Overview: The record is an 81-nucleotide sequence from Rabbit coronavirus HKU14, which matches "Coronavirus frameshifting stimulation element" in Rfam. It is one of the family's seed sequences. On this family, see Zhang et al., bioRxiv 2020: "Cryo-electron Microscopy and Exploratory Antisense Targeting of the 28-kDa Frameshift Stimulation Element from the SARS-CoV-2 RNA Genome". Rfam describes the family as follows. This family represents a conserved stem-loop found in Coronaviruses which can promote ribosomal frameshifting. This family interacts with a downstream region to form a pseudoknot structure, the region varies according to the virus but pseudoknot formation is known to stimulate frameshifting. In the classical situation a sequence 32nt downstream of the stem is complementary to part of the loop. In other Coronaviruses however, there is another stem loop structure around 150nt downstream that can interact with this family to form kissing stem loops and stimulate frameshifting. Pairs were carried over by alignment from the consensus structure, which is taken from published work. The organism belongs to Embecovirus, within Viruses.

[Rfam]
RNA sequence: GGGUUCGGGGUGCGAGUGUAGAUGCCCGUCUCGUACCCUGUGCCACCGGUCUUUCUACCGAUGUUCAAUUAAGGGCAUUUG
Numbered sequence: 001g002g003g004u005u006c007g008g009g010g011u012g013c014g015a016g017u018g019u020a021g022a023u024g025c026c027c028g029u030c031u032c033g034u035a036c037c038c039u040g041u042g043c044c045a046c047c048g049g050u051c052u053u054u055c056u057a058c059c060g061a062u063g064u065u066c067a068a069u070u071a072a073g074g075g076c077a078u079u080u081g
Base pairs, nucleotide, nucleotide: 008038009037010036011035012034013033014032015031016030023077024076025075026074027073042065044063045062046060049058050057